[Rfam]
Notes: This 156-nucleotide RNA sequence from Streptomyces sp. SLBN-118 belongs to the Rfam family "c-di-AMP riboswitch aptamer (ydaO/yuaA leader)". The match comes from Rfam's covariance-model search (46 bits).

RNA sequence: UCGACAGAAGCGCUUCGGCAGGAGUGGAGGACCCAAGCAGGACGGGACAGCCGGACAGCCCGGCGGUCCCUUGGGGUGAAGCCGCAGCCGCGGCCGGGCAUCUUCGUCCGUCCGAACCCGACAGGUCAUCCUUCACAGGCGGCUGACGAAGGGUUG
Dot-bracket structure: ((..................)).((((((....((((................................))))(((.....((((....))))..((((..........))))...)))...........))))))....................
Numbered sequence: 001u002c003g004a005c006a007g008a009a010g011c012g013c014u015u016c017g018g019c020a021g022g023a024g025u026g027g028a029g030g031a032c033c034c035a036a037g038c039a040g041g042a043c044g045g046g047a048c049a050g051c052c053g054g055a056c057a058g059c060c061c062g063g064c065g066g067u068c069c070c071u072u073g074g075g076g077u078g079a080a081g082c083c084g085c086a087g088c089c090g091c092g093g094c095c096g097g098g099c100a101u102c103u104u105c106g107u108c109c110g111u112c113c114g115a116a117c118c119c120g121a122c123a124g125g126u127c128a129u130c131c132u133u134c135a136c137a138g139g140c141g142g143c144u145g146a147c148g149a150a151g152g153g154u155u156g
Stems, first nucleotide, its partner, number of pairs: 001022002024136006034073004074119003082093004096113004
This family represents a conserved RNA structure found upstream of the ydaO and yuaA genes in Bacillus subtilis and related genes in other bacteria. The ydaO/yuaA element is thought to act as a genetic 'off' switch for the ydaO and yuaA genes in its native state. It is believed that the element may be triggered during osmotic shock leading to activation of ydaO, a predicted amino acid transporter gene, and members of the yuaA-yubG operon which code for KtrA and KtrB K+ transporters.